[Rfam]
RNA sequence: AAAAGAAGGGAACCGUUGCUGAUGAUGUAGUUUGAAAUUCUCACCAUUUAUAUCACAGUGGCUGUUCUUUUUUAUU
Numbered sequence: 001a002a003a004a005g006a007a008g009g010g011a012a013c014c015g016u017u018g019c020u021g022a023u024g025a026u027g028u029a030g031u032u033u034g035a036a037a038u039u040c041u042c043a044c045c046a047u048u049u050a051u052a053u054c055a056c057a058g059u060g061g062c063u064g065u066u067c068u069u070u071u072u073u074a075u076u
Base pairs, nucleotide, nucleotide: 004073005072007070008069009068010067011066012065013064016061017060018059019058020057021056023055024054026052027051028050029049
Rfam assigns this 76-nucleotide RNA from Drosophila rhopaloa to the family "mir-6 microRNA precursor family". This family consists of the microRNA (miRNA) precursor mir-6 which appears to be Drosophila specific. NCBI's taxonomy places the organism under Eukaryota, Panarthropoda, Pancrustacea, Endopterygota, Sophophora. Gene Ontology terms of the family: miRNA-mediated post-transcriptional gene silencing and RISC complex. The family has 36 seed sequences and 58 matches in Rfam 15.1.